[Rfam]
RNA: Small nucleolar RNA U2-19
Organism: Macaca mulatta
RNA sequence: AUUCAAGGAAGAAAAUAAUGAAAUUUGAGCAUCAGAAGACCUUCCAGUCUACUUGAUGCAUGAGCUCUACAGUUUUAAGA
Numbered sequence: 001a002u003u004c005a006a007g008g009a010a011g012a013a014a015a016u017a018a019u020g021a022a023a024u025u026u027g028a029g030c031a032u033c034a035g036a037a038g039a040c041c042u043u044c045c046a047g048u049c050u051a052c053u054u055g056a057u058g059c060a061u062g063a064g065c066u067c068u069a070c071a072g073u074u075u076u077a078a079g080a
Stems, first nucleotide, its partner, number of pairs: 029059005037050004